This 198-nucleotide sequence from Danio rerio belongs to the Rfam family "Small nucleolar RNA SNORA74". About the family: U19 belongs to the H/ACA class of snoRNAs. snoRNAs bind a number of proteins (including dyskerin, Gar1p and Nop10p in the case of the H/ACA class) to form snoRNP complexes. Rfam links the family to the GO terms nucleolus and RNA processing. The family is grouped with related families in Rfam's "SNORA74 clan". The family has 24 seed sequences and 1,348 matches in Rfam 15.1. On this family, see Kiss et al., Mol Cell Biol 1996: "Characterization of the intron-encoded U19 RNA, a new mammalian small nucleolar RNA that is not associated with fibrillarin". It scores 82 bits against the family's covariance model. By type it is an H/ACA-box small nucleolar RNA.

RNA sequence: CCCAGCAUUAGUCAGCUGUUCAGGCAUUUUCAGUGCCUGUAACGGUGUUAUACUGCUGGGACAGUGACCUGCCGCGGUCUGGCUCUAGAUGGCGCUGUUGUAGCGUCUUUCAGAGUUCAGCUGGAGGCAGGAGAGCCCUCUGAGCUAGGACUGAGUCUGCUUCGCUGUGGCUCAGCCCUUGACAGGAGGCCUCACAGA
Dot-bracket structure: (((((((.(.((..(((((((((((.........))))).))))))...))).))))))).......((((((.(...((((((((.((.(.((((.....))))).).).)))).))))...).)))))).(((((((........((..((((((...........))))))..))......)).)).))).....